[Rfam]
RNA sequence: CCCGUGUGCAUUGUAGUUGCAUUGCACGUUGUCAAUUCUUUGUUUCGCGCAAUGCUUCGGCAGUGCAACUCGGG
Numbered sequence: 001c002c003c004g005u006g007u008g009c010a011u012u013g014u015a016g017u018u019g020c021a022u023u024g025c026a027c028g029u030u031g032u033c034a035a036u037u038c039u040u041u042g043u044u045u046c047g048c049g050c051a052a053u054g055c056u057u058c059g060g061c062a063g064u065g066c067a068a069c070u071c072g073g074g
Stems, first nucleotide, its partner, number of pairs: 001074004006070001007067008016058001019055001021053005027047001
Annotation:
mir-33 microRNA precursor family: a 74-nucleotide sequence from Daphnia pulex. The base pairs follow the family's consensus structure, which was predicted with PFOLD. On this family, see Li et al., BMC Genomics 2009: "Direct sequencing and expression analysis of a large number of miRNAs in Aedes aegypti and a multi-species survey of novel mosquito miRNAs".